[Rfam]
RNA sequence: CUUUUUUACGCAUAUGUAAUCACCUCACCACAUUUUACUGUUCCUAUUGACUUUCUAACAGGUACAGAAAAACGUGUUAUACGGUUUAUCAGUUCCUAUUAUGCGUAUCAAAGUCAAAAAAGUGCUGCCUAGCGGCAAAUAAAAAAAACCGCUAUCGGCAGUACCAUUUUUGCGUGCAAAUAAUUCAUUUCUAUUUAGAUAGCGGUUAAAAGCCGCUUUUUUCUUUUCCCAGCAGAAA
Dot-bracket structure: ((((..((..(.((..............(((.((((.((((.(((.(((......))).))).)))).)))).))).(............)........)).)..))..)))).........(((((((.(((((.............))))..).))))))).................................(((.(.(((((...))))).).))).................